The record is a 62-nucleotide RNA from Astyanax mexicanus, which matches "Selenocysteine insertion sequence 1" in Rfam. About the family: The incorporation of selenocysteine into a protein sequence is directed by an in-frame UGA codon (usually a stop codon) within the coding region of the mRNA. Selenoprotein mRNAs contain a conserved secondary structure in the 3' UTR that is required for the distinction of UGA stop from UGA selenocysteine. The selenocysteine insertion sequence (SECIS) is around 60 nt in length and adopts a hairpin structure which is sufficiently well-defined and conserved to act as a computational screen for selenoprotein genes. The family's consensus secondary structure is taken from published work.
RNA sequence: UUUACUCUAUGAAGGCGCCUCUUGAAAUCUAUUGUGAGGGGGGUGUCUGAUGAAAAUGUAAA
Numbered sequence: 001u002u003u004a005c006u007c008u009a010u011g012a013a014g015g016c017g018c019c020u021c022u023u024g025a026a027a028u029c030u031a032u033u034g035u036g037a038g039g040g041g042g043g044u045g046u047c048u049g050a051u052g053a054a055a056a057u058g059u060a061a062a
Stems, first nucleotide, its partner, number of pairs: 001062005014047010028037002